[Rfam]
RNA: PhotoRC-II RNA
RNA sequence: UCACUUUCCAAACACGCCUUACCGAGACUAAACAGCGUGUCUAAAAAACAGUCUCUCAUACCUCAGGCGGAGGGUGUCUGAGGAAUAUUUUACCUA
Numbered sequence: 001u002c003a004c005u006u007u008c009c010a011a012a013c014a015c016g017c018c019u020u021a022c023c024g025a026g027a028c029u030a031a032a033c034a035g036c037g038u039g040u041c042u043a044a045a046a047a048a049c050a051g052u053c054u055c056u057c058a059u060a061c062c063u064c065a066g067g068c069g070g071a072g073g074g075u076g077u078c079u080g081a082g083g084a085a086u087a088u089u090u091u092a093c094c095u096a
Stems, first nucleotide, its partner, number of pairs: 013039005020034001024055005062082007